[Rfam]
RNA sequence: CUUCACGAGAUGCGCUCUGGAAAUCGGGGUAAAACCCGAGAUCCUGCUGGGCUCCAACCCGGCGCACGCCAACCCUUGGUUCAGGGGUGGUUUGGAUGACGAAGCGGCUGUGGCGCAACCGCGGGCGCAGCAAGAACCUCAC
Numbered sequence: 001c002u003u004c005a006c007g008a009g010a011u012g013c014g015c016u017c018u019g020g021a022a023a024u025c026g027g028g029g030u031a032a033a034a035c036c037c038g039a040g041a042u043c044c045u046g047c048u049g050g051g052c053u054c055c056a057a058c059c060c061g062g063c064g065c066a067c068g069c070c071a072a073c074c075c076u077u078g079g080u081u082c083a084g085g086g087g088u089g090g091u092u093u094g095g096a097u098g099a100c101g102a103a104g105c106g107g108c109u110g111u112g113g114c115g116c117a118a119c120c121g122c123g124g125g126c127g128c129a130g131c132a133a134g135a136a137c138c139u140c141a142c
Base pairs, nucleotide, nucleotide: 001104002103003102004101009067011066012065013064014063015062016061068091069090070089073087074086075085107131108130109129110128111127112126114123115122116121